[Rfam]
RNA sequence: GCUAAGGAAUGAUGACACGAAAGGCCGAAUUGCAGUGUCUGUUUACAGUUUUCUCUCUAUAAAGGCACGAUGACAAAAUUCCUGAAGCGACUUUUUUGUCUGACCUUGGC
Numbered sequence: 001g002c003u004a005a006g007g008a009a010u011g012a013u014g015a016c017a018c019g020a021a022a023g024g025c026c027g028a029a030u031u032g033c034a035g036u037g038u039c040u041g042u043u044u045a046c047a048g049u050u051u052u053c054u055c056u057c058u059a060u061a062a063a064g065g066c067a068c069g070a071u072g073a074c075a076a077a078a079u080u081c082c083u084g085a086a087g088c089g090a091c092u093u094u095u096u097u098g099u100c101u102g103a104c105c106u107u108g109g110c
Stems, first nucleotide, its partner, number of pairs: 001110007014100003024033002034096002037093001038090002040087001042085002048068002051065002054062001069081002072079001
The family of this 110-nucleotide sequence from Pogona vitticeps is "Small nucleolar RNA SNORD89". By type it is a C/D-box small nucleolar RNA.